[Rfam]
RNA sequence: GGAGGCGUACGUGUCCUGGUGGGCACCCUGGUCUUCAAAACCAGUGAAGUUGAGAAUCUCGGCUUGGCGGGUUCGAUUCCCGUCCGUCUCC
Numbered sequence: 001g002g003a004g005g006c007g008u009a010c011g012u013g014u015c016c017u018g019g020u021g022g023g024c025a026c027c028c029u030g031g032u033c034u035u036c037a038a039a040a041c042c043a044g045u046g047a048a049g050u051u052g053a054g055a056a057u058c059u060c061g062g063c064u065u066g067g068c069g070g071g072u073u074c075g076a077u078u079c080c081c082g083u084c085c086g087u088c089u090c091c
Base pairs, nucleotide, nucleotide: 001091002090003089004088005087006086007085009083011026012025013024014023015022016021028044029043030042031041032040047065048064049063050062051061068082069081070080071079
Description:
The record is a 91-nucleotide RNA sequence from Corynebacterium renale, which matches "Selenocysteine transfer RNA" in Rfam. The organism belongs to Corynebacterium, within Bacteria. Rfam 15.1 lists 4,211 matches to the family in 3,344 species.